RNA sequence: ACUCGUAAAUAGCAAAACUAGCGAAAGCUAGUGACGCAAAGCUAUAGGGCCUUCGAUAAUCGAUGGUAGCCAGUUGCCGUU
Numbered sequence: 001a002c003u004c005g006u007a008a009a010u011a012g013c014a015a016a017a018c019u020a021g022c023g024a025a026a027g028c029u030a031g032u033g034a035c036g037c038a039a040a041g042c043u044a045u046a047g048g049g050c051c052u053u054c055g056a057u058a059a060u061c062g063a064u065g066g067u068a069g070c071c072a073g074u075u076g077c078c079g080u081u
Stems, first nucleotide, its partner, number of pairs: 012037002017032006040075004047071002049067003053063003
The family of this 81-nucleotide sequence from Hujiaoplasma nucleasis is "c-di-GMP-I riboswitch aptamer". NCBI's taxonomy places the organism under Bacteria, Mycoplasmatota, Mollicutes, Candidatus Izemoplasmatales, Hujiaoplasma. GEMM was predicted in a large-scale screen for bacterial structured RNA regulatory elements. Genes associated with GEMM are involved in a diverse array of functions, including chemotaxis regulation, signal transduction, secretion and chitin.